Overview: Shown here is a 66-nucleotide RNA from Noviherbaspirillum sp. Root189, a member of the family "Betaproteobacteria toxic small RNA". A search with the family's covariance model found it, with a score of 55 bits. From the family's description: Overexpression in amino aid rich medium attenuates growth, suggesting role in repressing amino acid intake and metabolism. The family's consensus secondary structure was predicted with WAR. The literature on the family includes a 2012 paper in Genome Res by Kimelman et al., "A vast collection of microbial genes that are toxic to bacteria". The family has 51 seed sequences and 951 matches in Rfam 15.1. NCBI's taxonomy places the organism under Bacteria, Betaproteobacteria, Burkholderiales, Oxalobacteraceae, Noviherbaspirillum.
RNA sequence: UGUCUCCUCCAACUCUUCUUGAAUUGGAUUUAACCCGCGUACUGCAAGGUUCGCGGGUUUUUUUAU
Numbered sequence: 001u002g003u004c005u006c007c008u009c010c011a012a013c014u015c016u017u018c019u020u021g022a023a024u025u026g027g028a029u030u031u032a033a034c035c036c037g038c039g040u041a042c043u044g045c046a047a048g049g050u051u052c053g054c055g056g057g058u059u060u061u062u063u064u065a066u
Stems, first nucleotide, its partner, number of pairs: 008028005013021001032059008